[Rfam]
RNA sequence: UAAAAGGGUCGGUUGGCUAAAUGUGCCACGCUCACCCUUGUCUGGUGGGUGCUGUAUGGCUAUCAAGACAUAUGGCCGACAUAAUUUAUGGAAUCCGAAUAGGGUUGGCUCGCUUGGCCGACCCUCCAA
Numbered sequence: 001u002a003a004a005a006g007g008g009u010c011g012g013u014u015g016g017c018u019a020a021a022u023g024u025g026c027c028a029c030g031c032u033c034a035c036c037c038u039u040g041u042c043u044g045g046u047g048g049g050u051g052c053u054g055u056a057u058g059g060c061u062a063u064c065a066a067g068a069c070a071u072a073u074g075g076c077c078g079a080c081a082u083a084a085u086u087u088a089u090g091g092a093a094u095c096c097g098a099a100u101a102g103g104g105u106u107g108g109c110u111c112g113c114u115u116g117g118c119c120g121a122c123c124c125u126c127c128a129a
Stems, first nucleotide, its partner, number of pairs: 008080005014028004029051008052075007097127001099125001103123008
Shown here is a 129-nucleotide RNA from Theobroma umbraticum, a member of the family "U11 spliceosomal RNA". NCBI's taxonomy places the organism under Eukaryota, Streptophyta, eudicotyledons, Malvaceae, Theobroma. Rfam classes the family as a spliceosomal small nuclear RNA.